[Rfam]
RNA: Repression of heat shock gene expression (ROSE) element
RNA sequence: GCGGGGAUGCCGAAGACGGGUUUCCGCCACUUACCACUUGCUGAUUAUUCAGGAGAUUCGACAUGAGU
Numbered sequence: 001g002c003g004g005g006g007a008u009g010c011c012g013a014a015g016a017c018g019g020g021u022u023u024c025c026g027c028c029a030c031u032u033a034c035c036a037c038u039u040g041c042u043g044a045u046u047a048u049u050c051a052g053g054a055g056a057u058u059c060g061a062c063a064u065g066a067g068u
Stems, first nucleotide, its partner, number of pairs: 001027008010019003037055003041052004